Description
The family of this 83-nucleotide RNA from Sulfobacillus sp. hq2 is "c-di-GMP-I-GGC riboswitch aptamer". A search with the family's covariance model found it, with a score of 62 bits. Taxonomically the source falls in Sulfobacillus (Bacteria, Bacillati, Clostridia, Eubacteriales).
RNA sequence: ACAAAAAAUGGCACACCCGCCGCAAGGCGGGGUCGCAAAGUCACGGGUCCUCUCCCUGCGGGAGGAUAGCCGGACUCCCUGAU
Numbered sequence: 001a002c003a004a005a006a007a008a009u010g011g012c013a014c015a016c017c018c019g020c021c022g023c024a025a026g027g028c029g030g031g032g033u034c035g036c037a038a039a040g041u042c043a044c045g046g047g048u049c050c051u052c053u054c055c056c057u058g059c060g061g062g063a064g065g066a067u068a069g070c071c072g073g074a075c076u077c078c079c080u081g082a083u
Base pairs, nucleotide, nucleotide: 001083003080011036012035016031017030018029019028020027021026034069039076040075041074042073044072045071046070047067048066049065050064051063052062053061